[Rfam]
RNA: Bacterial RNase P class A
RNA sequence: AAGGUAAAUCAGAUGAUAGCUUGAACUUCGUGUUCAAGAGGAAAGUCCGGGCUGCUGUGAAGUAUGGUUCCAUUUAGAGAAUGGCUAGGGUAACCUAAGGGAUAGUGCAACAGAAAGUAAACAGCCGAUUUUCGGUGAUGGUGAAACGGUAGAGUAAGAGCCUACCAGCAUUUUGAGUAAUCUUAAUGGCUAUGUAAACCCAACCUGCAGCAAGAAGACCUGGUAAAAACUUCACAUUUUUGGUCUUUGCUUGAUUGUUAAAGUAAUUUAGCAACUAGAUAAAUUAUCGUCAUUUAAACAAAACUCGGCUUAUUGAUUUACCUUUUUC
Numbered sequence: 001a002a003g004g005u006a007a008a009u010c011a012g013a014u015g016a017u018a019g020c021u022u023g024a025a026c027u028u029c030g031u032g033u034u035c036a037a038g039a040g041g042a043a044a045g046u047c048c049g050g051g052c053u054g055c056u057g058u059g060a061a062g063u064a065u066g067g068u069u070c071c072a073u074u075u076a077g078a079g080a081a082u083g084g085c086u087a088g089g090g091u092a093a094c095c096u097a098a099g100g101g102a103u104a105g106u107g108c109a110a111c112a113g114a115a116a117g118u119a120a121a122c123a124g125c126c127g128a129u130u131u132u133c134g135g136u137g138a139u140g141g142u143g144a145a146a147c148g149g150u151a152g153a154g155u156a157a158g159a160g161c162c163u164a165c166c167a168g169c170a171u172u173u174u175g176a177g178u179a180a181u182c183u184u185a186a187u188g189g190c191u192a193u194g195u196a197a198a199c200c201c202a203a204c205c206u207g208c209a210g211c212a213a214g215a216a217g218a219c220c221u222g223g224u225a226a227a228a229a230c231u232u233c234a235c236a237u238u239u240u241u242g243g244u245c246u247u248u249g250c251u252u253g254a255u256u257g258u259u260a261a262a263g264u265a266a267u268u269u270a271g272c273a274a275c276u277a278g279a280u281a282a283a284u285u286a287u288c289g290u291c292a293u294u295u296a297a298a299c300a301a302a303a304c305u306c307g308g309c310u311u312a313u314u315g316a317u318u319u320a321c322c323u324u325u326u327u328c
Stems, first nucleotide, its partner, number of pairs: 001324010011313001012291007020038007043311003047308005052210004062233001066205004070084005085099001086097004100201002105199002107195003122140002124136005148166005168190001169188004175182002214248007226240004255274008